[Rfam]
RNA sequence: AGCCGAGUCCCGCGGCGUCCAGCCCGGGAACCGGGGACCCAUCGCCGGGCCGCCACGCGCGCCCGGCCGGGGUGAAUUCGCGUCGGCAGCCAGCCGGCGGCGAUAGGGCGGCCUCCGCGCCCGAACCCGUCAGCUAACCCGGUAGGCGAUCGAGGAGAGGAGAC
Numbered sequence: 001a002g003c004c005g006a007g008u009c010c011c012g013c014g015g016c017g018u019c020c021a022g023c024c025c026g027g028g029a030a031c032c033g034g035g036g037a038c039c040c041a042u043c044g045c046c047g048g049g050c051c052g053c054c055a056c057g058c059g060c061g062c063c064c065g066g067c068c069g070g071g072g073u074g075a076a077u078u079c080g081c082g083u084c085g086g087c088a089g090c091c092a093g094c095c096g097g098c099g100g101c102g103a104u105a106g107g108g109c110g111g112c113c114u115c116c117g118c119g120c121c122c123g124a125a126c127c128c129g130u131c132a133g134c135u136a137a138c139c140c141g142g143u144a145g146g147c148g149a150u151c152g153a154g155g156a157g158a159g160g161a162g163a164c
Base pairs, nucleotide, nucleotide: 002147003146004145008029009028010027011026012025030143031142032141033140034139035138040069070128071127072126078103079102080101081100106122107121108120109119
The record is a 164-nucleotide sequence from Actinomadura macrotermitis, which matches "c-di-AMP riboswitch aptamer (ydaO/yuaA leader)" in Rfam. From the family's description: This family represents a conserved RNA structure found upstream of the ydaO and yuaA genes in Bacillus subtilis and related genes in other bacteria. Taxonomically the source falls in Actinomadura (Bacteria, Actinomycetes, Streptosporangiales, Thermomonosporaceae).